[Rfam]
RNA: Glycine riboswitch aptamer
RNA sequence: GCGCAUCAUGCAGGAGAGAGCGGCGCCAGGCGCCGCCGCCGAAGGCGCAAGCGCACCCGCACAAUCGCUCAGGCAAAAGGACUGCAUCAUCGGG
Dot-bracket structure: .....(.((((((......((((.........)))).(((((..(((..................))))).))).......)))))).).....